The record is a 213-nucleotide RNA sequence from Nakamurella multipartita, which matches "Actinobacteria sRNA Ms_IGR-5" in Rfam. For this family Rfam cites "Identification of small RNAs in Mycobacterium smegmatis using heterologous Hfq" (Li et al., RNA, 2013). The match comes from Rfam's covariance-model search (76 bits).
[Rfam]
RNA sequence: ACACGAGGAAGGAGGUGGUCCUGAGUUGAGUAUUUCUCGGACACGUGAGGUGGCUGGCCGCUAGGCCGCACCGACCGAAAGGGCCCUCCAGUCCUCGUCGAGGAACUGCGGUCCAGCAAUUCACGGACAGUCACCCGACCCCCGGCGCCGCCGACCCCGUCCAAUCGGCCCCCCGCGAGCAUCGCGAGGGAAACGGCCCGGGGGUUGUCCGUG
Numbered sequence: 001a002c003a004c005g006a007g008g009a010a011g012g013a014g015g016u017g018g019u020c021c022u023g024a025g026u027u028g029a030g031u032a033u034u035u036c037u038c039g040g041a042c043a044c045g046u047g048a049g050g051u052g053g054c055u056g057g058c059c060g061c062u063a064g065g066c067c068g069c070a071c072c073g074a075c076c077g078a079a080a081g082g083g084c085c086c087u088c089c090a091g092u093c094c095u096c097g098u099c100g101a102g103g104a105a106c107u108g109c110g111g112u113c114c115a116g117c118a119a120u121u122c123a124c125g126g127a128c129a130g131u132c133a134c135c136c137g138a139c140c141c142c143c144g145g146c147g148c149c150g151c152c153g154a155c156c157c158c159g160u161c162c163a164a165u166c167g168g169c170c171c172c173c174c175g176c177g178a179g180c181a182u183c184g185c186g187a188g189g190g191a192a193a194c195g196g197c198c199c200g201g202g203g204g205u206u207g208u209c210c211g212u213g
Stems, first nucleotide, its partner, number of pairs: 014058001016056004060117003064113002069110001071108001136207010147197003150169005